This 77-nucleotide RNA sequence from Pleurocapsales cyanobacterium LEGE 06147 belongs to the Rfam family "CyVA-1 RNA". The match comes from Rfam's covariance-model search (74 bits). Pairs were carried over by alignment from the consensus structure, which is taken from published work. Cyanobacteria, Acidobacteria (1 example), Verrucomicrobia (1 example).
RNA sequence: GUACUGGAUAAGAAUUAUACCGCAGUGGCUCAUUGUCGGGCAUCGAAGGAGAACGACGUCAGAUGUUCGGACAGUAC
Dot-bracket structure: ((((((..(.((................)).)....((((((((.................))))))))..))))))